[Rfam]
RNA: Purine riboswitch aptamer
Organism: Xylanibacillus composti
RNA sequence: AGAUGAAAUUGGAUAAGAACUCGUAUAAAACCGGGGAUAUGGCCCGGAUGUCUCUACCCAAAGACCGUAAAUUUUUGGACUACGAGGACUUGACGGCCAAGG
Numbered sequence: 001a002g003a004u005g006a007a008a009u010u011g012g013a014u015a016a017g018a019a020c021u022c023g024u025a026u027a028a029a030a031c032c033g034g035g036g037a038u039a040u041g042g043c044c045c046g047g048a049u050g051u052c053u054c055u056a057c058c059c060a061a062a063g064a065c066c067g068u069a070a071a072u073u074u075u076u077g078g079a080c081u082a083c084g085a086g087g088a089c090u091u092g093a094c095g096g097c098c099a100a101g102g
Stems, first nucleotide, its partner, number of pairs: 020086006029049001031047005058078007